This 54-nucleotide sequence from Pundamilia nyererei belongs to the Rfam family "Editing element of GABA-3 exon 9". The match comes from Rfam's covariance-model search (58 bits). It is annotated as a cis-regulatory element. The base pairs follow the family's consensus structure, which is taken from published work. Taxonomically the source falls in Pundamilia (Eukaryota, Vertebrata, Teleostomi, Haplochromini).
RNA sequence: AAGGUCUCGUACGCUACUGCAAUGGACUGGUUCAUCGCCGUCUGCUUCGCCUUU
Numbered sequence: 001a002a003g004g005u006c007u008c009g010u011a012c013g014c015u016a017c018u019g020c021a022a023u024g025g026a027c028u029g030g031u032u033c034a035u036c037g038c039c040g041u042c043u044g045c046u047u048c049g050c051c052u053u054u
Stems, first nucleotide, its partner, number of pairs: 001054003008049001011046001013045002016041002019038002022035005